[Rfam]
A member of the RNA family "CpoB/ybgF ICR thermometer" from Tatumella morbirosei, 143 nucleotides long. The pairing is the family consensus, mapped onto this sequence.
RNA sequence: CCAAAUGUCUAUCGUUUCUUACGGUAAAGAGAAACCCGCAGUACUGGGUCAUGACGAAGCCGCAUGGGCUAAAAACCGUCGUGCCGUACUGGUUUACUAAGAGAUUUAUAUGAUUAGUAACUUCAGACUUCAUACCCUGAGUC
Numbered sequence: 001c002c003a004a005a006u007g008u009c010u011a012u013c014g015u016u017u018c019u020u021a022c023g024g025u026a027a028a029g030a031g032a033a034a035c036c037c038g039c040a041g042u043a044c045u046g047g048g049u050c051a052u053g054a055c056g057a058a059g060c061c062g063c064a065u066g067g068g069c070u071a072a073a074a075a076c077c078g079u080c081g082u083g084c085c086g087u088a089c090u091g092g093u094u095u096a097c098u099a100a101g102a103g104a105u106u107u108a109u110a111u112g113a114u115u116a117g118u119a120a121c122u123u124c125a126g127a128c129u130u131c132a133u134a135c136c137c138u139g140a141g142u143c
Base pairs, nucleotide, nucleotide: 001047002046003045008040014035015034016033017032018031019030020029054142055141058138059137062130065127068124075118076117078115079113080112081111082110083109086106089103090102
Dot-bracket structure: (((....(.....(((((((........)))))))....)....)))......((..((..(..(..(......((.((((((..(..((...........))..)..))))).).)).....)..)..)......))..)).

Imprinting control region from upstream of cpoB/ybgF (tol/pal system protein).
It is annotated as an RNA thermoregulator.
For this family Rfam cites "Temperature-responsive in vitro RNA structurome of Yersinia pseudotuberculosis" (Righetti et al., Proc Natl Acad Sci U S A, 2016).